[Rfam]
RNA sequence: AGGAUAAAAAUAGCGCCAGGUACCUUUUACAUUGGUCGAUAGGAGUAAAAGGUUGACGAGGAAAAGGGUGAUCGAAAAUUCGGCGGAUGCCCUUUCGUAGUUCCCGCUGCGGAUAUAUUGGCAAAUAUGCAGGUAACUGCAAAACAAAUUCAAUAUAACGGGAAAAU
Numbered sequence: 001a002g003g004a005u006a007a008a009a010a011u012a013g014c015g016c017c018a019g020g021u022a023c024c025u026u027u028u029a030c031a032u033u034g035g036u037c038g039a040u041a042g043g044a045g046u047a048a049a050a051g052g053u054u055g056a057c058g059a060g061g062a063a064a065a066g067g068g069u070g071a072u073c074g075a076a077a078a079u080u081c082g083g084c085g086g087a088u089g090c091c092c093u094u095u096c097g098u099a100g101u102u103c104c105c106g107c108u109g110c111g112g113a114u115a116u117a118u119u120g121g122c123a124a125a126u127a128u129g130c131a132g133g134u135a136a137c138u139g140c141a142a143a144a145c146a147a148a149u150u151c152a153a154u155a156u157a158a159c160g161g162g163a164a165a166a167u
Stems, first nucleotide, its partner, number of pairs: 020054001022053007030045001063094002066091002072083004095112006114157007128141005
RNA: glmS glucosamine-6-phosphate activated ribozyme aptamer